[Rfam]
mir-3689 microRNA precursor family: a 72-nucleotide RNA sequence from Piliocolobus tephrosceles. The organism belongs to Piliocolobus, within Eukaryota. Gene Ontology terms of the family: RISC complex and miRNA-mediated post-transcriptional gene silencing. The match comes from Rfam's covariance-model search (76 bits). The family's consensus secondary structure was predicted with RNAalifold.
RNA sequence: GGGGGGUGUGACCCCGCGCUCGCUGGGGGGUGUGAUCCCAUGCUCCCUGGGAGGUGUGAUCCCAUGCUCCCU
Numbered sequence: 001g002g003g004g005g006g007u008g009u010g011a012c013c014c015c016g017c018g019c020u021c022g023c024u025g026g027g028g029g030g031u032g033u034g035a036u037c038c039c040a041u042g043c044u045c046c047c048u049g050g051g052a053g054g055u056g057u058g059a060u061c062c063c064a065u066g067c068u069c070c071c072u
Base pairs, nucleotide, nucleotide: 001071002070003069004068005067015058016057017056018055020053023050024049025048026047027046028045029044031042032041033040034039